[Rfam]
RNA: Purine riboswitch aptamer
Nucleotides: 100
Stems, first nucleotide, its partner, number of pairs: 021083005029049007059075004
Number, partner (000 for none) and nucleotide at each position: 001000a002000a003000c004000u005000u006000c007000a008000u009000a010000c011000u012000u013000u014000u015000u016000a017000u018000u019000a020000c021083u022082c023081g024080u025079a026000u027000a028000u029049u030048c031047g032046c033045g034044g035043a036000a037000a038000u039000a040000u041000g042000g043035u044034c045033u046032g047031c048030g049029a050000g051000u052000u053000u054000c055000u056000a057000c058000a059075a060074g061073c062072u063000g064000c065000c066000u067000u068000a069000a070000a071000g072062a073061g074060c075059u076000a077000a078000c079025u080024a081023c082022g083021a084000a085000a086000c087000g088000g089000u090000g091000u092000c093000u094000u095000a096000u097000u098000u099000a100000g